Background:
This 86-nucleotide RNA sequence from Enterococcus faecalis belongs to the Rfam family "RNA anti-toxin A". The family's RNA type in Rfam is antitoxin RNA. Pairs were carried over by alignment from the consensus structure, which was predicted with RNAalifold. Rfam 15.1 lists 190 matches to the family in 120 species. For this family Rfam cites "Abundance of type I toxin-antitoxin systems in bacteria: searches for new candidates and discovery of novel families" (Fozo et al., Nucleic Acids Res, 2010).
Nucleotides: 086
Base pairs, nucleotide, nucleotide: 022035023034024033025032051065052064053063054062055061056060
Number, partner (000 for none) and nucleotide at each position: 001000u002000a003000a004000u005000g006000g007000u008000a009000a010000u011000g012000a013000a014000a015000a016000g017000a018000g019000a020000g021000c022035u023034a024033u025032g026000c027000u028000g029000u030000a031000a032025c033024a034023u035022a036000c037000c038000u039000c040000u041000c042000u043000g044000a045000u046000g047000u048000a049000g050000a051065g052064c053063c054062g055061u056060u057000u058000a059000a060056g061055a062054c063053g064052g065051u066000g067000a068000c069000c070000u071000u072000u073000u074000u075000g076000a077000u078000u079000a080000u081000u082000u083000a084000a085000a086000a